RNA sequence: CGGGGCGGGCGCGUGGUCGCCGUCGACGGCGGGCCGCAGGUCCGUCGCCGGCGGAGGAAAGUCCGAACUCCACCGGGCAGGGAGGUUCGUAACGCGAACCGGGGGCAACCCCAGGGAAAGUGCCACAGAAAAGAUACCGCCGGCAUUGCCGGUAAGGGUGAAAUGGUGAGGUAAGAGCUCACCGCUUGCCUGGUGACAGGCAAGGCAGGGUAAACCCCUCCCGGAGCAAGAUCAAAUAGGGAAACGCUUGAGGGCGGCCCGUCCGAAGUUUCCGGGUAGAUCGCAAGAGACGCCGGGCAACCGGCGCCCCCAGAUAAAUGACCACGGCCCGCAAGGGUACAGAAUUCGGCUUAUAGCCCGCCCCGCUUC
Numbered sequence: 001c002g003g004g005g006c007g008g009g010c011g012c013g014u015g016g017u018c019g020c021c022g023u024c025g026a027c028g029g030c031g032g033g034c035c036g037c038a039g040g041u042c043c044g045u046c047g048c049c050g051g052c053g054g055a056g057g058a059a060a061g062u063c064c065g066a067a068c069u070c071c072a073c074c075g076g077g078c079a080g081g082g083a084g085g086u087u088c089g090u091a092a093c094g095c096g097a098a099c100c101g102g103g104g105g106c107a108a109c110c111c112c113a114g115g116g117a118a119a120g121u122g123c124c125a126c127a128g129a130a131a132a133g134a135u136a137c138c139g140c141c142g143g144c145a146u147u148g149c150c151g152g153u154a155a156g157g158g159u160g161a162a163a164u165g166g167u168g169a170g171g172u173a174a175g176a177g178c179u180c181a182c183c184g185c186u187u188g189c190c191u192g193g194u195g196a197c198a199g200g201c202a203a204g205g206c207a208g209g210g211u212a213a214a215c216c217c218c219u220c221c222c223g224g225a226g227c228a229a230g231a232u233c234a235a236a237u238a239g240g241g242a243a244a245c246g247c248u249u250g251a252g253g254g255c256g257g258c259c260c261g262u263c264c265g266a267a268g269u270u271u272c273c274g275g276g277u278a279g280a281u282c283g284c285a286a287g288a289g290a291c292g293c294c295g296g297g298c299a300a301c302c303g304g305c306g307c308c309c310c311c312a313g314a315u316a317a318a319u320g321a322c323c324a325c326g327g328c329c330c331g332c333a334a335g336g337g338u339a340c341a342g343a344a345u346u347c348g349g350c351u352u353a354u355a356g357c358c359c360g361c362c363c364c365g366c367u368u369c
Stems, first nucleotide, its partner, number of pairs: 001365010011354001012326007020054006027047007059352003063349005068226004075260004080222005085099005100114001101112004115217002120215002122211003137157002139153006165183006184206001185204008230282004240273006252264004289308001291306006
Shown here is a 369-nucleotide RNA sequence from delta proteobacterium MLMS-1, a member of the family "Bacterial RNase P class A". Rfam's curators put it in the seed alignment. The organism belongs to Deltaproteobacteria, within Bacteria. Rfam links the family to the GO terms tRNA processing, dimeric ribonuclease P complex and ribonuclease P activity.